mir-8799 microRNA precursor family: a 90-nucleotide RNA from Vulpes vulpes.
RNA sequence: GGGUGAGUGCAGGAUCCUGAGCUGUGUCCCCCGGCGCCCUGGGCUGGGGCCUGCACUGCUGGAAUCGCGUUCCGGGGGCCGCAGCCCCCC
Numbered sequence: 001g002g003g004u005g006a007g008u009g010c011a012g013g014a015u016c017c018u019g020a021g022c023u024g025u026g027u028c029c030c031c032c033g034g035c036g037c038c039c040u041g042g043g044c045u046g047g048g049g050c051c052u053g054c055a056c057u058g059c060u061g062g063a064a065u066c067g068c069g070u071u072c073c074g075g076g077g078g079c080c081g082c083a084g085c086c087c088c089c090c
Stems, first nucleotide, its partner, number of pairs: 001089003005085001009082002012080002016076002019073001021071001023069004027063002031061001032058003036054002041051001043050002

Rfam 15.1 lists 20,638 matches to the family in 5 species.
The family is grouped with related families in Rfam's "mir-8791 microRNA precursor clan".
The source organism's lineage runs through Eukaryota, Dipnotetrapodomorpha, Amniota, Theria and Vulpes.
Rfam links the family to the GO terms RISC complex and miRNA-mediated post-transcriptional gene silencing.
A search with the family's covariance model found it, with a score of 48 bits.